RNA sequence: CGAGCCGGCCGGGCGGCCGCGUCGGUCCCUCUCACGAGGGGCCGCCGAGGAACGUCCGGGCUCCACAGGGCAGGGUGGUGGGUAACGCCCACCCGGGGUGACCCGCGGGACAGUGCCACAGAAAACAAACCGCCGGCGGCCCUCACGGGUCUGCCGGUAAGGGUGAAACGGCGGUGUAAGAGACCACCAGCGCCCGAGGCGACUCGGGCGGCUAGGUAAACCCCACCCGGAGCAAGGUCAAGAGGGGCCCUCGGAAACGAGGACCCUGCGCGAGCACUCGAGGGCAGCCCGCCCGAGCUCGCGGGUAGACCGCUAGAGGCCGACGGCAACGCCGGCCGUAGAUGGAUGGCCGCCUCCCCCGGCGCCGCAAGGCCCCGGGGAGACAGAACCCGGCGUACAGGCCGACUCGUCCG
Numbered sequence: 001c002g003a004g005c006c007g008g009c010c011g012g013g014c015g016g017c018c019g020c021g022u023c024g025g026u027c028c029c030u031c032u033c034a035c036g037a038g039g040g041g042c043c044g045c046c047g048a049g050g051a052a053c054g055u056c057c058g059g060g061c062u063c064c065a066c067a068g069g070g071c072a073g074g075g076u077g078g079u080g081g082g083u084a085a086c087g088c089c090c091a092c093c094c095g096g097g098g099u100g101a102c103c104c105g106c107g108g109g110a111c112a113g114u115g116c117c118a119c120a121g122a123a124a125a126c127a128a129a130c131c132g133c134c135g136g137c138g139g140c141c142c143u144c145a146c147g148g149g150u151c152u153g154c155c156g157g158u159a160a161g162g163g164u165g166a167a168a169c170g171g172c173g174g175u176g177u178a179a180g181a182g183a184c185c186a187c188c189a190g191c192g193c194c195c196g197a198g199g200c201g202a203c204u205c206g207g208g209c210g211g212c213u214a215g216g217u218a219a220a221c222c223c224c225a226c227c228c229g230g231a232g233c234a235a236g237g238u239c240a241a242g243a244g245g246g247g248c249c250c251u252c253g254g255a256a257a258c259g260a261g262g263a264c265c266c267u268g269c270g271c272g273a274g275c276a277c278u279c280g281a282g283g284g285c286a287g288c289c290c291g292c293c294c295g296a297g298c299u300c301g302c303g304g305g306u307a308g309a310c311c312g313c314u315a316g317a318g319g320c321c322g323a324c325g326g327c328a329a330c331g332c333c334g335g336c337c338g339u340a341g342a343u344g345g346a347u348g349g350c351c352g353c354c355u356c357c358c359c360c361g362g363c364g365c366c367g368c369a370a371g372g373c374c375c376c377g378g379g380g381a382g383a384c385a386g387a388a389c390c391c392g393g394c395g396u397a398c399a400g401g402c403c404g405a406c407u408c409g410u411c412c413g
Stems, first nucleotide, its partner, number of pairs: 001409004006404005011398001012354007020047002023044008052396003056393005061232004068290004073228005078092005093107001094105004108223002113221002115217003130162002132158008170188002173185003190212001191210008236311004270302006282294004318337005324331002
Bacterial RNase P class A: a 413-nucleotide RNA from Streptomyces coryli. Taxonomically the source falls in Streptomyces (Bacteria, Bacillati, Actinomycetota, Streptomycetaceae). About the family: Ribonuclease P (RNase P) is a ubiquitous endoribonuclease, found in archaea, bacteria and eukarya as well as chloroplasts and mitochondria. By type it is a ribozyme.